[Rfam]
RNA: opuB ncRNA motif
Organism: Kosakonia radicincitans
RNA sequence: GUAAAUUUCCCCGUCACUGGAAUCCUUCCCAGGCGCUUGCUAUAGGUCAAGUCACCCUGCCGAACAUGGCAUAACAACACGCAACGCCCGUUGCCAUAACGCAUGCAAACAGGGAGAAACAUUGCAAUGCAACU
Numbered sequence: 001g002u003a004a005a006u007u008u009c010c011c012c013g014u015c016a017c018u019g020g021a022a023u024c025c026u027u028c029c030c031a032g033g034c035g036c037u038u039g040c041u042a043u044a045g046g047u048c049a050a051g052u053c054a055c056c057c058u059g060c061c062g063a064a065c066a067u068g069g070c071a072u073a074a075c076a077a078c079a080c081g082c083a084a085c086g087c088c089c090g091u092u093g094c095c096a097u098a099a100c101g102c103a104u105g106c107a108a109a110c111a112g113g114g115a116g117a118a119a120c121a122u123u124g125c126a127a128u129g130c131a132a133c134u
Stems, first nucleotide, its partner, number of pairs: 012114001014113002019029003035106002038103003058071005081094005